A member of the RNA family "Iron response element I" from Nomascus leucogenys, 35 nucleotides long. The base pairs follow the family's consensus structure, which is taken from published work. NCBI's taxonomy places the organism under Eukaryota, Vertebrata, Teleostomi, Euarchontoglires, Nomascus. It is annotated as a cis-regulatory element. Rfam links the family to the GO term response to iron ion.
[Rfam]
RNA sequence: GAGUUUCCUGGUUCAACAGUGCUUGGACGGAACUG
Numbered sequence: 001g002a003g004u005u006u007c008c009u010g011g012u013u014c015a016a017c018a019g020u021g022c023u024u025g026g027a028c029g030g031a032a033c034u035g
Base pairs, nucleotide, nucleotide: 002034003033004032006031007030008029010028012027013026014025015024016023017021